[Rfam]
RNA sequence: AAAAAGGGUGCUCGCUACUUUAAUAGCGUGCAAGUUUGCAAUUACGCGAGCUUGCAGGGUAUGGCCAUCAAGACAUACCCAGUACAUAAUUUUUGAGAUGGCGAGGCUGUUAGCUGCCACUUGCACUGACGCCUCC
Numbered sequence: 001a002a003a004a005a006g007g008g009u010g011c012u013c014g015c016u017a018c019u020u021u022a023a024u025a026g027c028g029u030g031c032a033a034g035u036u037u038g039c040a041a042u043u044a045c046g047c048g049a050g051c052u053u054g055c056a057g058g059g060u061a062u063g064g065c066c067a068u069c070a071a072g073a074c075a076u077a078c079c080c081a082g083u084a085c086a087u088a089a090u091u092u093u094u095g096a097g098a099u100g101g102c103g104a105g106g107c108u109g110u111u112a113g114c115u116g117c118c119a120c121u122u123g124c125a126c127u128g129a130c131g132c133c134u135c136c
Base pairs, nucleotide, nucleotide: 008085009084010083011082012081013028014027015026016025017024029056030055031054032053033052034051035050036049037048038047039046057080058079059078060077061076062075063074104134105133106132107131109130110129111128112127113126115125116124117123
U11 spliceosomal RNA: a 136-nucleotide sequence from Fopius arisanus. The organism belongs to Fopius, within Eukaryota. The family's consensus secondary structure is taken from published work. It is annotated as a spliceosomal small nuclear RNA.